[Rfam]
RNA: Small Cajal body specific RNA 15
Organism: Microcebus murinus
RNA sequence: UUGAAGACUAAGAAAGUAGAAUCCUGGAAAUCAAGCUGACUCUGCUUUUAGUCUCCUUAGGAAGAAUAGGUCUUGCUUACAAAAUAAAUUCAAAACCUACUUAUCUACCAACAUGG
Number, nucleotide and partner (000 for none) at each position: 001u000002u000003g056004a000005a054006g053007a052008c051009u050010a049011a048012g000013a000014a000015a000016g000017u044018a043019g042020a041021a000022u039023c038024c035025u034026g000027g032028a000029a000030a000031u000032c027033a000034a025035g024036c000037u000038g023039a022040c000041u020042c019043u018044g017045c000046u000047u000048u011049u010050a009051g008052u007053c006054u005055c000056c003057u000058u107059a106060g105061g104062a000063a102064g000065a000066a000067u000068a098069g097070g096071u095072c000073u093074u092075g091076c000077u000078u000079a000080c000081a000082a000083a000084a000085u000086a000087a000088a000089u000090u000091c075092a074093a073094a000095a071096c070097c069098u068099a000100c000101u000102u063103a000104u061105c060106u059107a058108c000109c000110a000111a000112c000113a000114u000115g000116g000